Shown here is a 74-nucleotide RNA from Crocodylus porosus, a member of the family "Mammalian CPEB3 ribozyme".
RNA sequence: AUUGCAAGUUUGAGGCCACAGCAGAAAUGUUCAUGGCACAGCCCUGUCAGAUUCCAACAAAUCUGAAUUCUGCU
Numbered sequence: 001a002u003u004g005c006a007a008g009u010u011u012g013a014g015g016c017c018a019c020a021g022c023a024g025a026a027a028u029g030u031u032c033a034u035g036g037c038a039c040a041g042c043c044c045u046g047u048c049a050g051a052u053u054c055c056a057a058c059a060a061a062u063c064u065g066a067a068u069u070c071u072g073c074u
Base pairs, nucleotide, nucleotide: 012044014043015042016041020074021073022072023071024070025069026068028038029037048065049064050063051062052061053060
The base pairs follow the family's consensus structure, which is taken from published work. It scores 47 bits against the family's covariance model. Lineage of the source: Eukaryota > Bilateria > Longirostres > Crocodylidae > Crocodylus.